RNA: Bacterial small subunit ribosomal RNA, nucleotides 1 to 560
RNA sequence: ACGAUGAAGAGUUUGAUCCUGGCUCAGGAUGAACGCUAGCGGCAGGCUUAACACAUGCAAGUCGAGGGGCAGCAUUGGUACUUGUACCAGAUGGCGACCGGCGCACGGGUGCGUAACGCGUAUGAAACCUACCUAAUACAGGGGGAUAGCCCAGAGAAAUUUGGAUUAAUACCUCAUAGUACUGUUGAAUCGCCUGAUUCAAUAGUUAAAGAUUUAUCGGUAUUAGAUGGUCAUGCGUUCUAUUAGUUAGUUGGUAAGGUAACGGCUUACCAAGACUUCGAUAGAUAGGGGCCCUGAGAGGGGGAUCCCCCACACUGGUACUGAGACACGGACCAGACUCCUACGGGAGGCAGCAGUGAGGAAUAUUGGACAAUGGAGGCAACUCUGAUCCAGCCAUGCCGCGUGAAGGAAGACUGCCCUAUGGGUUGUAAACUUCUUUUAUAGAGGAAGAAACGCAGAUACGUGUAUUUGUUUGACGGUACUCUACGAAUAAGGAUCGGCUAACUCCGUGCCAGCAGCCGCGGUAAUACGGAGGAUCCAAGCGUUAUCCGGAAUCAUUG
Numbered sequence: 001a002c003g004a005u006g007a008a009g010a011g012u013u014u015g016a017u018c019c020u021g022g023c024u025c026a027g028g029a030u031g032a033a034c035g036c037u038a039g040c041g042g043c044a045g046g047c048u049u050a051a052c053a054c055a056u057g058c059a060a061g062u063c064g065a066g067g068g069g070c071a072g073c074a075u076u077g078g079u080a081c082u083u084g085u086a087c088c089a090g091a092u093g094g095c096g097a098c099c100g101g102c103g104c105a106c107g108g109g110u111g112c113g114u115a116a117c118g119c120g121u122a123u124g125a126a127a128c129c130u131a132c133c134u135a136a137u138a139c140a141g142g143g144g145g146a147u148a149g150c151c152c153a154g155a156g157a158a159a160u161u162u163g164g165a166u167u168a169a170u171a172c173c174u175c176a177u178a179g180u181a182c183u184g185u186u187g188a189a190u191c192g193c194c195u196g197a198u199u200c201a202a203u204a205g206u207u208a209a210a211g212a213u214u215u216a217u218c219g220g221u222a223u224u225a226g227a228u229g230g231u232c233a234u235g236c237g238u239u240c241u242a243u244u245a246g247u248u249a250g251u252u253g254g255u256a257a258g259g260u261a262a263c264g265g266c267u268u269a270c271c272a273a274g275a276c277u278u279c280g281a282u283a284g285a286u287a288g289g290g291g292c293c294c295u296g297a298g299a300g301g302g303g304g305a306u307c308c309c310c311c312a313c314a315c316u317g318g319u320a321c322u323g324a325g326a327c328a329c330g331g332a333c334c335a336g337a338c339u340c341c342u343a344c345g346g347g348a349g350g351c352a353g354c355a356g357u358g359a360g361g362a363a364u365a366u367u368g369g370a371c372a373a374u375g376g377a378g379g380c381a382a383c384u385c386u387g388a389u390c391c392a393g394c395c396a397u398g399c400c401g402c403g404u405g406a407a408g409g410a411a412g413a414c415u416g417c418c419c420u421a422u423g424g425g426u427u428g429u430a431a432a433c434u435u436c437u438u439u440u441a442u443a444g445a446g447g448a449a450g451a452a453a454c455g456c457a458g459a460u461a462c463g464u465g466u467a468u469u470u471g472u473u474u475g476a477c478g479g480u481a482c483u484c485u486a487c488g489a490a491u492a493a494g495g496a497u498c499g500g501c502u503a504a505c506u507c508c509g510u511g512c513c514a515g516c517a518g519c520c521g522c523g524g525u526a527a528u529a530c531g532g533a534g535g536a537u538c539c540a541a542g543c544g545u546u547a548u549c550c551g552g553a554a555u556c557a558u559u560g
Stems, first nucleotide, its partner, number of pairs: 009025005027550004032546006039402006045395002047360001052358003056355003061102003066099002069095002075090006109313003118238008128230002133226007141175004149166001151164005181206007189198003211218002239285003246276003251273008288310004292303004315336005338349004366392001368391003374387005405436004416426003442486005450477001456471003494539005505534005515522002